RNA sequence: CCUCCGUCUAUCCCCGACGGGAUGAAAAGCCGGACACCUUCACCGGCCCGAGGGAGGCACCGAAAUGCUGAAGG
Numbered sequence: 001c002c003u004c005c006g007u008c009u010a011u012c013c014c015c016g017a018c019g020g021g022a023u024g025a026a027a028a029g030c031c032g033g034a035c036a037c038c039u040u041c042a043c044c045g046g047c048c049c050g051a052g053g054g055a056g057g058c059a060c061c062g063a064a065a066u067g068c069u070g071a072a073g074g
Stems, first nucleotide, its partner, number of pairs: 001057005007051002013021002029047005037074006
Dot-bracket structure: (((((.((....((.....)).......(((((...[[[[[[)))))..)).)))))...........]]]]]]
RNA: int-alpA RNA